[Rfam]
RNA sequence: AUGCCCUACGGUGAUCUCAGGUCCGCCGCAUCUCCUGGAUUCCGUGGGGUGGGUCGGCAGCGGUGCAGGUAUGGAGUGGCCUCCUCGUGUCGCCUGCAUCGCGCCGACCGCCUC
Numbered sequence: 001a002u003g004c005c006c007u008a009c010g011g012u013g014a015u016c017u018c019a020g021g022u023c024c025g026c027c028g029c030a031u032c033u034c035c036u037g038g039a040u041u042c043c044g045u046g047g048g049g050u051g052g053g054u055c056g057g058c059a060g061c062g063g064u065g066c067a068g069g070u071a072u073g074g075a076g077u078g079g080c081c082u083c084c085u086c087g088u089g090u091c092g093c094c095u096g097c098a099u100c101g102c103g104c105c106g107a108c109c110g111c112c113u114c
Stems, first nucleotide, its partner, number of pairs: 003050008017038005052109007060102004
EcpR1: a 114-nucleotide sequence from Stappia albiluteola. Gene Ontology terms of the family: mRNA binding, regulation of translation in response to stress and negative regulation of cell cycle. The source organism's lineage runs through Bacteria, Pseudomonadati, Hyphomicrobiales, Stappiaceae and Stappia. About the family: Perviously named SmelC291, SmrC10, or Sra33. According to its overproduction phenotype it was renamed Elongated Cell Phenotype RNA1. Induced by stress,EcpR1 negatively regulates cell cycle master regulatory genes dnaA and gcrA at post-transcriptional level by base pairing between its strongly conserved GC-rich loop and the target mRNAs. The literature on the family includes a 2011 paper in Genes (Basel) by Reinkensmeier et al., "Conservation and Occurrence of Trans-Encoded sRNAs in the Rhizobiales". The match comes from Rfam's covariance-model search (80 bits).